[Rfam]
The family of this 100-nucleotide sequence from Citrobacter rodentium is "TrxA 5' UTR thermometer".
Involved in protection against oxidative stress.
Pairs were carried over by alignment from the consensus structure.
On this family, see Righetti et al., Proc Natl Acad Sci U S A 2016: "Temperature-responsive in vitro RNA structurome of Yersinia pseudotuberculosis".
The organism belongs to Citrobacter rodentium, within Bacteria.
The family's RNA type in Rfam is RNA thermoregulator.

RNA sequence: AACCUUUAGUUGGUUAAUGCUACACCAAUAGCCACACCAACACGCCAGGCUUAUUCCUGUGGAGUUAUAUAUGAGCGAUAAAAUUAUUCACCUGACUGAC
Numbered sequence: 001a002a003c004c005u006u007u008a009g010u011u012g013g014u015u016a017a018u019g020c021u022a023c024a025c026c027a028a029u030a031g032c033c034a035c036a037c038c039a040a041c042a043c044g045c046c047a048g049g050c051u052u053a054u055u056c057c058u059g060u061g062g063a064g065u066u067a068u069a070u071a072u073g074a075g076c077g078a079u080a081a082a083a084u085u086a087u088u089c090a091c092c093u094g095a096c097u098g099a100c
Base pairs, nucleotide, nucleotide: 009079010078011077012076014074015073016072022065023064025062026061027060030058084099085098086097088095089094